RNA sequence: UGAGUCGGUUGGGCGACCGCGCGGACCACACGGUUCUCGAGGAACGUCCGGGCUCUACAGGGCAGGGUGAUGGCUAACAGCCACCCGGGGUGACCCGAGGGAUAGUGCCACAGAAAAUAAACCGCCGCGCAAGCGGUAAGGGUGAAAAGGUGAGGUAAGAGCUCACCAGCGGUUUGGGUGACCGAGCCGGCUUGGUAAACCCCACCCAGAGCAAGACCGAGCAGCAGGUAUGGGUGGCCCGCCCGACGCCUGCGGGUAGGUUGCUUGAGGCGUUUGGCAACAAACGUCCUAGAUAGAUGGUCGCCACCGCUUGUGCGGGACAAAACCCGGCGUACAGACCGACUCAUCCG
Numbered sequence: 001u002g003a004g005u006c007g008g009u010u011g012g013g014c015g016a017c018c019g020c021g022c023g024g025a026c027c028a029c030a031c032g033g034u035u036c037u038c039g040a041g042g043a044a045c046g047u048c049c050g051g052g053c054u055c056u057a058c059a060g061g062g063c064a065g066g067g068u069g070a071u072g073g074c075u076a077a078c079a080g081c082c083a084c085c086c087g088g089g090g091u092g093a094c095c096c097g098a099g100g101g102a103u104a105g106u107g108c109c110a111c112a113g114a115a116a117a118u119a120a121a122c123c124g125c126c127g128c129g130c131a132a133g134c135g136g137u138a139a140g141g142g143u144g145a146a147a148a149g150g151u152g153a154g155g156u157a158a159g160a161g162c163u164c165a166c167c168a169g170c171g172g173u174u175u176g177g178g179u180g181a182c183c184g185a186g187c188c189g190g191c192u193u194g195g196u197a198a199a200c201c202c203c204a205c206c207c208a209g210a211g212c213a214a215g216a217c218c219g220a221g222c223a224g225c226a227g228g229u230a231u232g233g234g235u236g237g238c239c240c241g242c243c244c245g246a247c248g249c250c251u252g253c254g255g256g257u258a259g260g261u262u263g264c265u266u267g268a269g270g271c272g273u274u275u276g277g278c279a280a281c282a283a284a285c286g287u288c289c290u291a292g293a294u295a296g297a298u299g300g301u302c303g304c305c306a307c308c309g310c311u312u313g314u315g316c317g318g319g320a321c322a323a324a325a326c327c328c329g330g331c332g333u334a335c336a337g338a339c340c341g342a343c344u345c346a347u348c349c350g
Stems, first nucleotide, its partner, number of pairs: 001346010011335001012305007020039002023036005044333003048330005053211004060240004065207005071083004085099001086097004100202002105200002107196003122141002124137005149167006169191001170189008215262004224253006231245005269288008

Shown here is a 350-nucleotide RNA sequence from Schaalia turicensis, a member of the family "Bacterial RNase P class A". The match comes from Rfam's covariance-model search (313 bits). The family's RNA type in Rfam is ribozyme.